[Rfam]
The family of this 105-nucleotide RNA from Prunus armeniaca is "MIR6274 microRNA precursor family".
RNA sequence: GGAUAACACUGUUUUGCUAUCAUCGGCCAAUAACGCAAUGACACGUGGGAAAAUUAUCUUACGUGUCAUCGCAUUAUUGAUCGGGAAUAGCAAAAAGUGUUAUUC
Numbered sequence: 001g002g003a004u005a006a007c008a009c010u011g012u013u014u015u016g017c018u019a020u021c022a023u024c025g026g027c028c029a030a031u032a033a034c035g036c037a038a039u040g041a042c043a044c045g046u047g048g049g050a051a052a053a054u055u056a057u058c059u060u061a062c063g064u065g066u067c068a069u070c071g072c073a074u075u076a077u078u079g080a081u082c083g084g085g086a087a088u089a090g091c092a093a094a095a096a097g098u099g100u101u102a103u104u105c
Base pairs, nucleotide, nucleotide: 002104003103004102005101012095013094014093015092016091017090018089019088020087023084024083025082026081028079029078030077031076032075033074035072036071038069039068040067041066042065043064044063045062046061047060048059049058050057

It scores 85 bits against the family's covariance model.